[Rfam]
RNA: Streptococcus sRNA SpF59 (ldcC RNA)
RNA sequence: CGACCACAUGGUUUUUAUGUUAAGCCUAGCGGACGGGCGGGUCAUUUGCCGA
Numbered sequence: 001c002g003a004c005c006a007c008a009u010g011g012u013u014u015u016u017a018u019g020u021u022a023a024g025c026c027u028a029g030c031g032g033a034c035g036g037g038c039g040g041g042u043c044a045u046u047u048g049c050c051g052a
Stems, first nucleotide, its partner, number of pairs: 002043004006020005